[Rfam]
RNA sequence: CGGCCAGCCGCAGCAUCCCUCAGGUCCUACUCCCCAAGAGGCCCAUCCCCAGGGAGCUCAUGCUGCGGGGCAUUGAGCACGCCCACCUGCUGGCCCCUACAAGACGAACGCCCCGGACCAUGCACUGGUCCGGGGCGUUCGUUU
Numbered sequence: 001c002g003g004c005c006a007g008c009c010g011c012a013g014c015a016u017c018c019c020u021c022a023g024g025u026c027c028u029a030c031u032c033c034c035c036a037a038g039a040g041g042c043c044c045a046u047c048c049c050c051a052g053g054g055a056g057c058u059c060a061u062g063c064u065g066c067g068g069g070g071c072a073u074u075g076a077g078c079a080c081g082c083c084c085a086c087c088u089g090c091u092g093g094c095c096c097c098u099a100c101a102a103g104a105c106g107a108a109c110g111c112c113c114c115g116g117a118c119c120a121u122g123c124a125c126u127g128g129u130c131c132g133g134g135g136c137g138u139u140c141g142u143u144u
Stems, first nucleotide, its partner, number of pairs: 002095007010066007020045001023043004027038002046055003068084004110136011